The family of this 159-nucleotide RNA sequence from Kitasatospora indigofera is "c-di-AMP riboswitch aptamer (ydaO/yuaA leader)".
The base pairs follow the family's consensus structure.
About the family: This family represents a conserved RNA structure found upstream of the ydaO and yuaA genes in Bacillus subtilis and related genes in other bacteria.
RNA sequence: CGCGAAUUCGCACCACGGCAGGCGCGGGGGACCCAGGUAAGUCGCCCCCGACCGGUCCACGACCGGUUCAGGGGCUAGGGGUGAAGCCGUGCUCAGCACGGCCGGGCAACUCCAGCCCGAAUCCGACAGCUCACCUCGCAGGCGUGGGAGAGGAACAUC
Numbered sequence: 001c002g003c004g005a006a007u008u009c010g011c012a013c014c015a016c017g018g019c020a021g022g023c024g025c026g027g028g029g030g031a032c033c034c035a036g037g038u039a040a041g042u043c044g045c046c047c048c049c050g051a052c053c054g055g056u057c058c059a060c061g062a063c064c065g066g067u068u069c070a071g072g073g074g075c076u077a078g079g080g081g082u083g084a085a086g087c088c089g090u091g092c093u094c095a096g097c098a099c100g101g102c103c104g105g106g107c108a109a110c111u112c113c114a115g116c117c118c119g120a121a122u123c124c125g126a127c128a129g130c131u132c133a134c135c136u137c138g139c140a141g142g143c144g145u146g147g148g149a150g151a152g153g154a155a156c157a158u159c
Stems, first nucleotide, its partner, number of pairs: 001144003008022002024139006034078001079124003087101004104118004